[Rfam]
RNA sequence: UGGAAAUUAUGUUCUUUUAGUAUUUGUCCAGUAGGUUUCCUCAAGGAGAAAGCCCCU
Numbered sequence: 001u002g003g004a005a006a007u008u009a010u011g012u013u014c015u016u017u018u019a020g021u022a023u024u025u026g027u028c029c030a031g032u033a034g035g036u037u038u039c040c041u042c043a044a045g046g047a048g049a050a051a052g053c054c055c056c057u
Stems, first nucleotide, its partner, number of pairs: 034054005040048003
U7 small nuclear RNA: a 57-nucleotide RNA sequence from Salmo salar. Pairs were carried over by alignment from the consensus structure, which was predicted with PFOLD. The match comes from Rfam's covariance-model search (44 bits).